[Rfam]
RNA sequence: GGCCACCUUCGGGGGGCUUAUCACAUAGGCGGAUCCCGAUCCGCCGUUAGCUAACGGAAGACAGAAA
Numbered sequence: 001g002g003c004c005a006c007c008u009u010c011g012g013g014g015g016g017c018u019u020a021u022c023a024c025a026u027a028g029g030c031g032g033a034u035c036c037c038g039a040u041c042c043g044c045c046g047u048u049a050g051c052u053a054a055c056g057g058a059a060g061a062c063a064g065a066a067a
Stems, first nucleotide, its partner, number of pairs: 001018004006014003028045007
This 67-nucleotide RNA from Roseovarius indicus belongs to the Rfam family "L2-Alphaproteobacteria ribosomal protein leader". It is annotated as a cis-regulatory leader. Taxonomically the source falls in Roseovarius (Bacteria, Pseudomonadati, Rhodobacterales, Roseobacteraceae).